Shown here is a 98-nucleotide RNA sequence from Astyanax mexicanus, a member of the family "Small nucleolar RNA SNORD16". The base pairs follow the family's consensus structure, which was predicted with PFOLD. Rfam links the family to the GO terms RNA processing and nucleolus. The family has 5 seed sequences and 1,321 matches in Rfam 15.1. By type it is a C/D-box small nucleolar RNA. The match comes from Rfam's covariance-model search (94 bits).

RNA sequence: UGCCAUGAUGGUGUAAUUUGCGUCUGACUCUGUAACCAGUGACAGUUGCCUGCUGUCUUAUGCUGGUGCAGAGGGUUGACGACAACUAAGGCUGAGCA
Numbered sequence: 001u002g003c004c005a006u007g008a009u010g011g012u013g014u015a016a017u018u019u020g021c022g023u024c025u026g027a028c029u030c031u032g033u034a035a036c037c038a039g040u041g042a043c044a045g046u047u048g049c050c051u052g053c054u055g056u057c058u059u060a061u062g063c064u065g066g067u068g069c070a071g072a073g074g075g076u077u078g079a080c081g082a083c084a085a086c087u088a089a090g091g092c093u094g095a096g097c098a
Base pairs, nucleotide, nucleotide: 001098002097003096021081022080023079024078030071031070032069033068034067039063040062041057042056043055044054045053